[Rfam]
RNA: RNase MRP
RNA sequence: AGGCAUUCUGAAGACCUGCUUACAAGGCUACCAAUGGAGGAUGUUAGUUUCUCUUCAAUCUAAACCGCCUAGGGGAAAGUCCCCGGACCCAUGGCAGAGAGUGUCCCGCUUUGAAGCGCUACCCUUCUGCACACUCCGCCUUGAAAGCGCUAAGAUGUUCUCCACGACGGAGCGCGCGGGCGCAGUUGGGGCGACUGUCUCAGUCGGAAGUGACGCAGGUAAUGUACAGGGUACAUCAACAGCACGGGGCUCAUUCUCAGAAUGUC
Numbered sequence: 001a002g003g004c005a006u007u008c009u010g011a012a013g014a015c016c017u018g019c020u021u022a023c024a025a026g027g028c029u030a031c032c033a034a035u036g037g038a039g040g041a042u043g044u045u046a047g048u049u050u051c052u053c054u055u056c057a058a059u060c061u062a063a064a065c066c067g068c069c070u071a072g073g074g075g076a077a078a079g080u081c082c083c084c085g086g087a088c089c090c091a092u093g094g095c096a097g098a099g100a101g102u103g104u105c106c107c108g109c110u111u112u113g114a115a116g117c118g119c120u121a122c123c124c125u126u127c128u129g130c131a132c133a134c135u136c137c138g139c140c141u142u143g144a145a146a147g148c149g150c151u152a153a154g155a156u157g158u159u160c161u162c163c164a165c166g167a168c169g170g171a172g173c174g175c176g177c178g179g180g181c182g183c184a185g186u187u188g189g190g191g192c193g194a195c196u197g198u199c200u201c202a203g204u205c206g207g208a209a210g211u212g213a214c215g216c217a218g219g220u221a222a223u224g225u226a227c228a229g230g231g232u233a234c235a236u237c238a239a240c241a242g243c244a245c246g247g248g249g250c251u252c253a254u255u256c257u258c259a260g261a262a263u264g265u266c
Stems, first nucleotide, its partner, number of pairs: 002266010014220006023072001025070004037056005043050001078251002081249004093105004107118004122191003127185004135180004147175004157168003222236006